[Rfam]
RNA sequence: GGAGCGGGCCGGGCCCCUCUGACACCCCACGACGUGGUGUGAUGUCGGACCGCAGAU
Numbered sequence: 001g002g003a004g005c006g007g008g009c010c011g012g013g014c015c016c017c018u019c020u021g022a023c024a025c026c027c028c029a030c031g032a033c034g035u036g037g038u039g040u041g042a043u044g045u046c047g048g049a050c051c052g053c054a055g056a057u
Base pairs, nucleotide, nucleotide: 006051007050009048010047011046012045022040023039024038025037026036028034

Description
The record is a 57-nucleotide RNA sequence from Sphingomonas desiccabilis, which matches "terC RNA" in Rfam. It scores 47 bits against the family's covariance model. By type it is a cis-regulatory element. Pairs were carried over by alignment from the consensus structure, which is taken from published work. The family has 129 seed sequences and 1,112 matches in Rfam 15.1.